[Rfam]
RNA: U11 spliceosomal RNA
Organism: Taxus chinensis
RNA sequence: AAAAAGGGCCGGUUGGCUAAAUAUGCCACGUUCGCUUUUCGAGGCGGGUGCUGUAUGGAUAUCAAGACAUAUGGCCGGCGCAAUUUCUGGAAAAAUAUUGGGUUGGCCCGCUCGGCCGACCCUACCA
Numbered sequence: 001a002a003a004a005a006g007g008g009c010c011g012g013u014u015g016g017c018u019a020a021a022u023a024u025g026c027c028a029c030g031u032u033c034g035c036u037u038u039u040c041g042a043g044g045c046g047g048g049u050g051c052u053g054u055a056u057g058g059a060u061a062u063c064a065a066g067a068c069a070u071a072u073g074g075c076c077g078g079c080g081c082a083a084u085u086u087c088u089g090g091a092a093a094a095a096u097a098u099u100g101g102g103u104u105g106g107c108c109c110g111c112u113c114g115g116c117c118g119a120c121c122c123u124a125c126c127a
Base pairs, nucleotide, nucleotide: 008079009078010077011076012075014028015027016026017025029050030049031048032047033046034045035044036043037042051074052073053072054071055070056069057068098124100122101121102120103119104118105117106116107115108114